[Rfam]
A member of the RNA family "Potassium channel RNA editing signal" from Anopheles sinensis, 114 nucleotides long.
The base pairs follow the family's consensus structure, which is taken from published work.
A search with the family's covariance model found it, with a score of 81 bits.
This family represents a group of sequences related to the human potassium channel Kv1.1 hairpin element which directs the efficient modification of an adenosine to inosine by an adenosine deaminase acting on RNA (ADAR). The ADAR modification causes an isoleucine/valine recoding event which lies in the ion-conducting pore of the potassium channel. It is thought that this editing event targets the process of fast inactivation and allows a more rapid recovery from inactivation at negative potentials.
It is annotated as a cis-regulatory element.
RNA sequence: GUCGGCUAUGGAGAUAUGGCACCGAAGACCUACAUCGGAAUGUUCGUUGGAGCGCUCUGUGCUCUAGCCGGUGUGUUGACGAUCGCCCUGCCCGUGCCGGUCAUCGUGAGUAAC
Numbered sequence: 001g002u003c004g005g006c007u008a009u010g011g012a013g014a015u016a017u018g019g020c021a022c023c024g025a026a027g028a029c030c031u032a033c034a035u036c037g038g039a040a041u042g043u044u045c046g047u048u049g050g051a052g053c054g055c056u057c058u059g060u061g062c063u064c065u066a067g068c069c070g071g072u073g074u075g076u077u078g079a080c081g082a083u084c085g086c087c088c089u090g091c092c093c094g095u096g097c098c099g100g101u102c103a104u105c106g107u108g109a110g111u112a113a114c
Stems, first nucleotide, its partner, number of pairs: 001114002004111001007108005013102003018097001021095002037077002040074001049063002